[Rfam]
RNA sequence: GCCCGCGUAGCUCAGCGGAUAGAGCAGGUGACUUCUAAUCUCCGUGUCGCAGGUUCGACUCCUGUCGUGGGCA
Numbered sequence: 001g002c003c004c005g006c007g008u009a010g011c012u013c014a015g016c017g018g019a020u021a022g023a024g025c026a027g028g029u030g031a032c033u034u035c036u037a038a039u040c041u042c043c044g045u046g047u048c049g050c051a052g053g054u055u056c057g058a059c060u061c062c063u064g065u066c067g068u069g070g071g072c073a
Base pairs, nucleotide, nucleotide: 001072002071003070004069005068006067007066010025011024012023013022027043028042030040031039049065050064051063052062053061
The record is a 73-nucleotide RNA sequence from Alloscardovia omnicolens, which matches "tRNA" in Rfam. NCBI's taxonomy places the organism under Bacteria, Bacillati, Actinomycetota, Bifidobacteriaceae, Alloscardovia omnicolens. It is annotated as a transfer RNA. A search with the family's covariance model found it, with a score of 60 bits. Gene Ontology term of the family: triplet codon-amino acid adaptor activity. The family's consensus secondary structure is taken from published work.